About this RNA
A member of the RNA family "mir-181 microRNA precursor family" from Takifugu flavidus, 78 nucleotides long. The base pairs follow the family's consensus structure, which was predicted with PFOLD. Lineage of the source: Eukaryota > Chordata > Eurypterygia > Ctenosquamata > Takifugu.

RNA sequence: AGUCUUUGGGGAACAUUCAACGCUGUCGGUGAGUUUUGUCUCCGAAAAACCAUCGACUGUUGAGUGUACCCUGACACU
Number, nucleotide and partner (000 for none) at each position: 001a078002g077003u076004c000005u000006u074007u073008g072009g000010g000011g000012a000013a000014c066015a065016u064017u063018c062019a061020a060021c059022g058023c000024u000025g057026u056027c055028g054029g053030u052031g051032a000033g050034u049035u048036u047037u000038g000039u000040c000041u000042c000043c000044g000045a000046a000047a036048a035049a034050c033051c031052a030053u029054c028055g027056a026057c025058u022059g021060u020061u019062g018063a017064g016065u015066g014067u000068a000069c000070c000071c000072u008073g007074a006075c000076a003077c002078u001